RNA: Glycine riboswitch aptamer
Organism: Kibdelosporangium phytohabitans
RNA sequence: ACGCCUCUGGAAAGUGGGUUUACACACCCCGCCGACGGUGAAAGCCCGCACUAGCUGCGGGUGAAGCUCUCAGGCGCCCUUUCGGGCAUGGACAGAGGGGGAGGG
Numbered sequence: 001a002c003g004c005c006u007c008u009g010g011a012a013a014g015u016g017g018g019u020u021u022a023c024a025c026a027c028c029c030c031g032c033c034g035a036c037g038g039u040g041a042a043a044g045c046c047c048g049c050a051c052u053a054g055c056u057g058c059g060g061g062u063g064a065a066g067c068u069c070u071c072a073g074g075c076g077c078c079c080u081u082u083c084g085g086g087c088a089u090g091g092a093c094a095g096a097g098g099g100g101g102a103g104g105g
Stems, first nucleotide, its partner, number of pairs: 002100001004098006016029004031075003034071002038069001040067001044062006